[Rfam]
Rfam assigns this 200-nucleotide RNA sequence from Dichanthelium oligosanthes to the family "MIR1435 microRNA precursor family". Gene Ontology terms of the family: miRNA-mediated post-transcriptional gene silencing and RISC complex. The source organism's lineage runs through Eukaryota, Spermatophyta, Magnoliopsida, Poaceae and Dichanthelium. The family's consensus secondary structure was predicted with RNAalifold. The family has 3 seed sequences and 1,765 matches in Rfam 15.1.
RNA sequence: UUGAUUUGUCUUAAGACAAAUUUGUCCAACCUUGAUCUAAUUUAUAAAAAAAUAUAACAAUAUUUAUAAUAUCAAAUAUAUGCACUAUCAAAGUAUAUUCCAUGGUUGAUUAAAUAAAACAAAUUUGGUAUUGUAGAUGUUGUUAUAUUUUUCUAUAAACUUGAUUAAACUUAAACAAGUUUGACUUAGGACAAACCAAA
Dot-bracket structure: ....(((((.(((((.(((((((((......((.(.......((.(((((....(((.((((((((((...((((((.............................................))))))...)))))))))).)))..))))).))..........).)).....))))))))).))))).))))).....
Numbered sequence: 001u002u003g004a005u006u007u008g009u010c011u012u013a014a015g016a017c018a019a020a021u022u023u024g025u026c027c028a029a030c031c032u033u034g035a036u037c038u039a040a041u042u043u044a045u046a047a048a049a050a051a052a053u054a055u056a057a058c059a060a061u062a063u064u065u066a067u068a069a070u071a072u073c074a075a076a077u078a079u080a081u082g083c084a085c086u087a088u089c090a091a092a093g094u095a096u097a098u099u100c101c102a103u104g105g106u107u108g109a110u111u112a113a114a115u116a117a118a119a120c121a122a123a124u125u126u127g128g129u130a131u132u133g134u135a136g137a138u139g140u141u142g143u144u145a146u147a148u149u150u151u152u153c154u155a156u157a158a159a160c161u162u163g164a165u166u167a168a169a170c171u172u173a174a175a176c177a178a179g180u181u182u183g184a185c186u187u188a189g190g191a192c193a194a195a196c197c198a199a200a
Stems, first nucleotide, its partner, number of pairs: 005195005011189005017183009032169002035166001043155002046152005055145003059141010072128006